[Rfam]
RNA sequence: AUGUUGUGAUUCGGACAUCGGUCAAUCGAAAGCUUAUAACGUUCCCAUGCUUCGAAUAAAGAUUCGUCGGGAAGUUGUCGGAAAUUGCUUAUGUCGUUUCUGAGCUU
Number, nucleotide and partner (000 for none) at each position: 001a107002u000003g105004u104005u102006g101007u000008g000009a000010u000011u000012c000013g000014g000015a000016c000017a000018u000019c000020g000021g000022u000023c000024a000025a000026u000027c000028g000029a000030a000031a000032g000033c000034u000035u000036a000037u000038a000039a000040c000041g000042u000043u000044c000045c000046c000047a000048u000049g000050c000051u000052u000053c000054g000055a000056a000057u074058a000059a000060a000061g000062a000063u000064u000065c000066g000067u000068c000069g000070g000071g000072a000073a000074g057075u000076u000077g000078u000079c000080g000081g000082a000083a000084a000085u000086u000087g000088c000089u000090u000091a000092u000093g000094u000095c000096g000097u000098u000099u000100c000101u006102g005103a000104g004105c003106u000107u001

A member of the RNA family "Plant small nucleolar RNA R71" from Artemisia annua, 107 nucleotides long.
Lineage of the source: Eukaryota > Streptophytina > Euphyllophyta > Mesangiospermae > Artemisia.
The base pairs follow the family's consensus structure, which was predicted with PFOLD.
A search with the family's covariance model found it, with a score of 44 bits.